[Rfam]
RNA sequence: AGCUUUGCGCAGAGGCGGUGUCGUACCCAAUGAAGUGAUAACUGAGGGGCGACUAUUGCUAGUUGAAACUUCAUUCGUACUUCCCAUACCAUUGAUUCCCAUGGUACGUGGGAUCUGGCAAUUUUUUUAAA
Number, nucleotide and partner (000 for none) at each position: 001a000002g000003c000004u000005u000006u000007g000008c000009g000010c000011a000012g000013a000014g000015g000016c000017g000018g000019u000020g053021u052022c051023g050024u049025a000026c048027c047028c046029a000030a000031u000032g000033a000034a043035g042036u041037g000038a000039u000040a000041a036042c035043u034044g000045a000046g028047g027048g026049g024050c023051g022052a021053c020054u000055a000056u000057u000058g000059c000060u000061a000062g000063u000064u000065g000066a000067a000068a000069c000070u000071u000072c000073a000074u000075u000076c000077g000078u000079a000080c000081u000082u112083c111084c110085c108086a000087u106088a105089c104090c103091a102092u101093u000094g099095a000096u000097u000098c000099c094100c000101a092102u091103g090104g089105u088106a087107c000108g085109u000110g084111g083112g082113a000114u000115c000116u000117g000118g000119c000120a000121a000122u000123u000124u131125u130126u000127u000128u000129a000130a125131a124
U4 spliceosomal RNA: a 131-nucleotide RNA sequence from Rhipicephalus microplus. The base pairs follow the family's consensus structure, which is taken from published work. From the family's description: U4 small nuclear RNA (U4 snRNA) is a component of the major U2-dependent spliceosome. Rfam classes the family as a spliceosomal small nuclear RNA. Lineage of the source: Eukaryota > Opisthokonta > Arachnida > Ixodoidea > Boophilus.